[Rfam]
RNA sequence: AUACUCUGACUUCUCUUCAGAUCGUAUAAACUCUUUCGCUUUUACUAAAGAGUUUCCGUGGAGAGGAUCAAUAAGAGUUAACUCAAUUUUUGAUGCCUGCUUAAGUGGGG
Numbered sequence: 001a002u003a004c005u006c007u008g009a010c011u012u013c014u015c016u017u018c019a020g021a022u023c024g025u026a027u028a029a030a031c032u033c034u035u036u037c038g039c040u041u042u043u044a045c046u047a048a049a050g051a052g053u054u055u056c057c058g059u060g061g062a063g064a065g066g067a068u069c070a071a072u073a074a075g076a077g078u079u080a081a082c083u084c085a086a087u088u089u090u091u092g093a094u095g096c097c098u099g100c101u102u103a104a105g106u107g108g109g110g
Base pairs, nucleotide, nucleotide: 003078004077005076006075009068011067012066013065014064015063016062017061018060019059028055029054030053032051033050034049035048036047100110101109
The record is a 110-nucleotide RNA sequence from Etheostoma spectabile, which matches "U5 spliceosomal RNA" in Rfam. A search with the family's covariance model found it, with a score of 63 bits. The family's RNA type in Rfam is spliceosomal small nuclear RNA. Rfam's curators write: U5 RNA is a component of both types of known spliceosome. The precise function of this molecule is unknown, though it is known that the 5' loop is required for splice site selection and p220 binding, and that both the 3' stem-loop and the Sm site are important for Sm protein binding and cap methylation. The family's consensus secondary structure is taken from published work. Its family is annotated with spliceosomal tri-snRNP complex assembly and U5 snRNP in the Gene Ontology. The source organism's lineage runs through Eukaryota, Craniata, Euteleostomi, Percoidei and Oligocephalus.